[Rfam]
Nucleotides: 103
Stems, first nucleotide, its partner, number of pairs: 001103002005099002008096004013078003022074001023072001025070001027068002055090002057086005
Number, partner (000 for none) and nucleotide at each position: 001103c002102g003000a004000c005099g006098g007000c008096a009095g010094g011093g012000a013078g014077g015076c016000u017000g018000g019000g020000a021000u022074c023072g024000a025070g026000g027068g028067g029000a030000u031000c032000c033000c034000g035000c036000c037000g038000g039000c040000g041000c042000g043000g044000c045000g046000c047000c048000g049000a050000g051000a052000c053000a054000c055090g056089g057086u058085c059084g060083c061082c062000a063000u064000u065000c066000g067028u068027c069000a070025c071000g072023c073000u074022g075000g076015g077014c078013c079000a080000a081000u082061g083060g084059c085058g086057a087000g088000a089056c090055c091000g092000a093011c094010c095009c096008u097000a098006u099005c100000u101000g102002c103001g
Shown here is a 103-nucleotide RNA sequence, a member of the family "c-di-GMP-II-GAG riboswitch aptamer".